[Rfam]
Background: This 147-nucleotide RNA from Tupaia belangeri belongs to the Rfam family "Small nucleolar RNA SNORA79". For this family Rfam cites "A computational screen for mammalian pseudouridylation guide H/ACA RNAs" (Schattner et al., RNA, 2006). A search with the family's covariance model found it, with a score of 106 bits. ACA65 (SNORA79) is a member of the H/ACA class of snoRNAs that guide the sites of modification of uridines to pseudouridines. This snoRNA was identified by computational screening and its expression in mouse experimentally verified by Northern blot and primer extension analysis. Taxonomically the source falls in Tupaia belangeri (Eukaryota, Tetrapoda, Eutheria, Tupaia).
RNA sequence: UGAUGGCUGUUCCUCUUGCUGCUUGGAGCCUUAGGCAGUGGGAUUUUGGUCCAUCAUAGAUCAAAGCUGACUUGUCUUCACUCAGGGCACCAAGGGGAUGGGUUGGCUGUCCGUUAGUGCCUUUGAUUUUUGCGGAGUUGAACAUCC
Numbered sequence: 001u002g003a004u005g006g007c008u009g010u011u012c013c014u015c016u017u018g019c020u021g022c023u024u025g026g027a028g029c030c031u032u033a034g035g036c037a038g039u040g041g042g043a044u045u046u047u048g049g050u051c052c053a054u055c056a057u058a059g060a061u062c063a064a065a066g067c068u069g070a071c072u073u074g075u076c077u078u079c080a081c082u083c084a085g086g087g088c089a090c091c092a093a094g095g096g097g098a099u100g101g102g103u104u105g106g107c108u109g110u111c112c113g114u115u116a117g118u119g120c121c122u123u124u125g126a127u128u129u130u131u132g133c134g135g136a137g138u139u140g141a142a143c144a145u146c147c
Stems, first nucleotide, its partner, number of pairs: 001056006008049001014043005020037004069139005082126005087120004096112005